Rfam assigns this 77-nucleotide sequence from Crocodylus porosus to the family "Mammalian CPEB3 ribozyme". Pairs were carried over by alignment from the consensus structure, which is taken from published work. The source organism's lineage runs through Eukaryota, Metazoa, Gnathostomata, Sauria and Crocodylus. Rfam describes the family as follows. The mammalian CPEB3 ribozyme is a self cleaving RNA located in the second intron of the CPEB3 gene which belongs to a family of genes regulating messenger RNA polyadenylation.
[Rfam]
RNA sequence: AGGCAUAAGUAUAAGGCCAAAGCAGAAGCACUCAUGGCAUGGCCUUGUCAGAAUCUAAAGAAUCUGAAAAUUCUGCU
Numbered sequence: 001a002g003g004c005a006u007a008a009g010u011a012u013a014a015g016g017c018c019a020a021a022g023c024a025g026a027a028g029c030a031c032u033c034a035u036g037g038c039a040u041g042g043c044c045u046u047g048u049c050a051g052a053a054u055c056u057a058a059a060g061a062a063u064c065u066g067a068a069a070a071u072u073c074u075g076c077u
Base pairs, nucleotide, nucleotide: 014045015044016043017042018041021077022076023075024074025073026072027071028040049066050065051064052063054061055060